[Rfam]
RNA sequence: GGGGAGAGACUUAGAAUCCCCGUGAAAUGUUGUGUGAAUAGCGGUGUCUUUGGCCGGGCAUGGCGGUUCGUGAAUC
Numbered sequence: 001g002g003g004g005a006g007a008g009a010c011u012u013a014g015a016a017u018c019c020c021c022g023u024g025a026a027a028u029g030u031u032g033u034g035u036g037a038a039u040a041g042c043g044g045u046g047u048c049u050u051u052g053g054c055c056g057g058g059c060a061u062g063g064c065g066g067u068u069c070g071u072g073a074a075u076c
Stems, first nucleotide, its partner, number of pairs: 001021005035070005041064002044061006
RNA: L13-Bacteroidia ribosomal protein leader